This 141-nucleotide sequence from Nothobranchius furzeri belongs to the Rfam family "Small nucleolar RNA SNORD10". Rfam 15.1 lists 433 matches to the family in 306 species. Gene Ontology terms of the family: RNA processing and nucleolus. A search with the family's covariance model found it, with a score of 90 bits. A reference for the family is Huttenhofer et al. (2001), "RNomics: an experimental approach that identifies 201 candidates for novel, small, non-messenger RNAs in mouse", EMBO J. By type it is a C/D-box small nucleolar RNA.

RNA sequence: GUAUGAUGAUGAAAUCCAUGCGUGUCAACUGACUCUUGAGUCGUCCUGGUGUGGUGAUGUUCAGGCUAGCGUUCUGCUGACCUGGGUUUUCACAACAUCAGGGACUUGGAGACAUGAUCACACCCUCAUGGUUCUGAGUAC
Numbered sequence: 001g002u003a004u005g006a007u008g009a010u011g012a013a014a015u016c017c018a019u020g021c022g023u024g025u026c027a028a029c030u031g032a033c034u035c036u037u038g039a040g041u042c043g044u045c046c047u048g049g050u051g052u053g054g055u056g057a058u059g060u061u062c063a064g065g066c067u068a069g070c071g072u073u074c075u076g077c078u079g080a081c082c083u084g085g086g087u088u089u090u091c092a093c094a095a096c097a098u099c100a101g102g103g104a105c106u107u108g109g110a111g112a113c114a115u116g117a118u119c120a121c122a123c124c125c126u127c128a129u130g131g132u133u134c135u136g137a138g139u140a141c
Stems, first nucleotide, its partner, number of pairs: 001141004044103009